[Rfam]
RNA: Nuclear RNase P
RNA sequence: CUGGUGAGAAGACGGUUUAAGGAGCGACUCACGAGUGCAAUUCGUCACUCUUCACUAUCAAAUGCUCCUGGGAAGGUCUGAGAUAAGGUCCGACGCCAACAGGUGGCGUUUCAAUCCUCUAGCAGGGGAGUAGUGUAAAACACUGCAGGGCCGUACGAGAAAAGCCGACGGGUGUGUGCUAUAACGCACGAUGAAUCGAAAGAUUCGGACGUUCUACGGUACACAUCUGUCGUUUGGACACGGUGCUGGUAUCGGCUGCGCUGAGUGCGAUAACCACUAAACCCAAUUCAGACUACUCUCUCGCCAG
Numbered sequence: 001c002u003g004g005u006g007a008g009a010a011g012a013c014g015g016u017u018u019a020a021g022g023a024g025c026g027a028c029u030c031a032c033g034a035g036u037g038c039a040a041u042u043c044g045u046c047a048c049u050c051u052u053c054a055c056u057a058u059c060a061a062a063u064g065c066u067c068c069u070g071g072g073a074a075g076g077u078c079u080g081a082g083a084u085a086a087g088g089u090c091c092g093a094c095g096c097c098a099a100c101a102g103g104u105g106g107c108g109u110u111u112c113a114a115u116c117c118u119c120u121a122g123c124a125g126g127g128g129a130g131u132a133g134u135g136u137a138a139a140a141c142a143c144u145g146c147a148g149g150g151c152c153g154u155a156c157g158a159g160a161a162a163a164g165c166c167g168a169c170g171g172g173u174g175u176g177u178g179c180u181a182u183a184a185c186g187c188a189c190g191a192u193g194a195a196u197c198g199a200a201a202g203a204u205u206c207g208g209a210c211g212u213u214c215u216a217c218g219g220u221a222c223a224c225a226u227c228u229g230u231c232g233u234u235u236g237g238a239c240a241c242g243g244u245g246c247u248g249g250u251a252u253c254g255g256c257u258g259c260g261c262u263g264a265g266u267g268c269g270a271u272a273a274c275c276a277c278u279a280a281a282c283c284c285a286a287u288u289c290a291g292a293c294u295a296c297u298c299u300c301u302c303g304c305c306a307g
Stems, first nucleotide, its partner, number of pairs: 001307003007301003018272001020069005033050005038044001078291005090249002115129005130146006147247002150244004166232003